[Rfam]
The record is a 93-nucleotide RNA from Manihot esculenta, which matches "small nucleolar RNA snoR114" in Rfam. It scores 66 bits against the family's covariance model. The family's consensus secondary structure was predicted with RNAalifold. By type it is a C/D-box small nucleolar RNA.
RNA sequence: GAGCUGUGAUGAGUCGUGUGCUUUGUGGUUGAUGGUGGGGUCCGUCACCUUCCGUCUGAUUUACCGGACGAUAAAUCGAGCGCAUCUGAGCUC
Dot-bracket structure: ((((.....................................................................................))))